[Rfam]
RNA sequence: UGCAAGUAUUUUACGGUUAAGAAGCAACUGUCUCUUGUACAAUUGGGGUUUGAAUAA
Numbered sequence: 001u002g003c004a005a006g007u008a009u010u011u012u013a014c015g016g017u018u019a020a021g022a023a024g025c026a027a028c029u030g031u032c033u034c035u036u037g038u039a040c041a042a043u044u045g046g047g048g049u050u051u052g053a054a055u056a057a
Stems, first nucleotide, its partner, number of pairs: 018037005024031002
RNA: Plastid-rps18 3UTR RNA
Organism: Nicotiana sylvestris